The record is a 94-nucleotide RNA from Cronobacter sakazakii, which matches "MicF RNA" in Rfam. On this family, see Delihas and Forst, J Mol Biol 2001: "MicF: an antisense RNA gene involved in response of Escherichia coli to global stress factors". The match comes from Rfam's covariance-model search (94 bits). Lineage of the source: Bacteria > Pseudomonadati > Pseudomonadota > Gammaproteobacteria > Cronobacter sakazakii. Rfam describes the family as follows. The micF gene is a stress response gene found in Escherichia coli and related bacteria that post-transcriptionally controls expression of the outer membrane porin gene ompF. The micF gene encodes a non-translated 93 nt antisense RNA that binds its target ompF mRNA and regulates ompF expression by inhibiting translation and inducing degradation of the message. In addition, other factors, such as the RNA chaperone protein StpA also play a role in this regulatory system. Expression of micF is controlled by both environmental and internal stress factors. Four transcriptional regulators are known to bind the micF promoter region and activate micF expression. It is annotated as an antisense RNA.

RNA sequence: CGCUAUCAUCAUUAACUUUAUUUAUUACCGUCAUUCAGAUCUGAAUGUUCGUUUUACCCCUAUUACCGCCGGAUGCUCGCAUCCGGCAUUUUUU
Numbered sequence: 001c002g003c004u005a006u007c008a009u010c011a012u013u014a015a016c017u018u019u020a021u022u023u024a025u026u027a028c029c030g031u032c033a034u035u036c037a038g039a040u041c042u043g044a045a046u047g048u049u050c051g052u053u054u055u056a057c058c059c060c061u062a063u064u065a066c067c068g069c070c071g072g073a074u075g076c077u078c079g080c081a082u083c084c085g086g087c088a089u090u091u092u093u094u
Base pairs, nucleotide, nucleotide: 033046034045035044036043037042068087069086070085071084072083073082074081075080